[Rfam]
RNA: Small Cajal body specific RNA 11
Organism: Pelodiscus sinensis
RNA sequence: GCGUCCUGCCCCUACCAAUGCUUUUCCCCUCACCAGUGCUGUGGUGGGGUGGACGUUGGGGUGGACGCAGAUCAAACUGCCUCUCAGAUUAGGAGGGCUGCCCCAAAGCGAUGUGCAUGCCCUUAAAGGCACGAGAGAACAUU
Dot-bracket structure: .(((((...((............(((.((((((..........)))))).))).....))..))))).............(((((.(.((..((((((.((..((......)).))..))))))..)).)..)))))......